[Rfam]
RNA sequence: ACGACCCCCGGCGUCGGUCCCGUAAUUUGGGUAAGGUCAUCGAUACCCUGACAUGCGGACUCGCCGACCUCAUGGGGUAC
Numbered sequence: 001a002c003g004a005c006c007c008c009c010g011g012c013g014u015c016g017g018u019c020c021c022g023u024a025a026u027u028u029g030g031g032u033a034a035g036g037u038c039a040u041c042g043a044u045a046c047c048c049u050g051a052c053a054u055g056c057g058g059a060c061u062c063g064c065c066g067a068c069c070u071c072a073u074g075g076g077g078u079a080c
Stems, first nucleotide, its partner, number of pairs: 003080001004078005009066005016060001018058002021055003029048005036041001
SL669 non-coding RNA: an 80-nucleotide RNA sequence from Orthohepacivirus hominis. It is annotated as a cis-regulatory element. Rfam's curators put it in the seed alignment. Pairs were carried over by alignment from the consensus structure, which was predicted with RNAfold. Taxonomically the source falls in Orthohepacivirus hominis (Viruses, Riboviria, Orthornavirae, Hepaciviridae).